[Rfam]
Record summary
Rfam assigns this 100-nucleotide RNA sequence from Paenibacillus sp. YN15 to the family "Guanidine-I riboswitch aptamer". The match comes from Rfam's covariance-model search (90 bits). Lineage of the source: Bacteria > Bacillati > Bacillota > Paenibacillaceae > Paenibacillus.
RNA sequence: AUAAUAGCUUUCUAGGGUUCCGCAGCAGUCUGCUGGUCUGGUCCGAGAGAAAGCGGCAGUCUUCGGACUGCUUCCACGGAGGGACAAAAGCCCGGGAGAA
Numbered sequence: 001a002u003a004a005u006a007g008c009u010u011u012c013u014a015g016g017g018u019u020c021c022g023c024a025g026c027a028g029u030c031u032g033c034u035g036g037u038c039u040g041g042u043c044c045g046a047g048a049g050a051a052a053g054c055g056g057c058a059g060u061c062u063u064c065g066g067a068c069u070g071c072u073u074c075c076a077c078g079g080a081g082g083g084a085c086a087a088a089a090g091c092c093c094g095g096g097a098g099a100a
Stems, first nucleotide, its partner, number of pairs: 007054006015044002020041002022038001023035005055073001056071006075095001077098001081093003